[Rfam]
RNA sequence: GCAAUUGCUCCGGGGUGCAUGCGCAAGCGUGCUGAGAUCCAGACCCGAGAACUUGAACCGGCUCAUACCGGCGUAAGGAGAGCAACAUCUGCCGGA
Numbered sequence: 001g002c003a004a005u006u007g008c009u010c011c012g013g014g015g016u017g018c019a020u021g022c023g024c025a026a027g028c029g030u031g032c033u034g035a036g037a038u039c040c041a042g043a044c045c046c047g048a049g050a051a052c053u054u055g056a057a058c059c060g061g062c063u064c065a066u067a068c069c070g071g072c073g074u075a076a077g078g079a080g081a082g083c084a085a086c087a088u089c090u091g092c093c094g095g096a
Base pairs, nucleotide, nucleotide: 006084007083008082009081010080011047012046013045014044016041017032018031019030020029021028052077053076054075055074058071059070060069061068
Annotation:
TPP riboswitch aptamer (THI element): a 96-nucleotide sequence from Pseudomonas sp. Taxonomically the source falls in Pseudomonas (Bacteria, Pseudomonadota, Gammaproteobacteria, Pseudomonadaceae). A search with the family's covariance model found it, with a score of 61 bits.